[Rfam]
RNA sequence: CUCUUAUCAAGAGAGGUGGAGGGACUGGCCCGAUGAAGCCCGGCAACCACGAUAUAUUACGUAUAUCGAAGGUGCCAAUUCCUGCAACACAUUGGUGUUGAAAGAUAAGGA
Numbered sequence: 001c002u003c004u005u006a007u008c009a010a011g012a013g014a015g016g017u018g019g020a021g022g023g024a025c026u027g028g029c030c031c032g033a034u035g036a037a038g039c040c041c042g043g044c045a046a047c048c049a050c051g052a053u054a055u056a057u058u059a060c061g062u063a064u065a066u067c068g069a070a071g072g073u074g075c076c077a078a079u080u081c082c083u084g085c086a087a088c089a090c091a092u093u094g095g096u097g098u099u100g101a102a103a104g105a106u107a108a109g110g111a
Base pairs, nucleotide, nucleotide: 002110003109004108005107006106007105008104013041015040016039017038021031022030023029025084027082028081042076043075044074045073047072048071050068051067052066053065054064055063080103085100086099087098088097089096090095

Rfam assigns this 111-nucleotide RNA from Andreesenella acetica to the family "SAM riboswitch aptamer (S box leader)".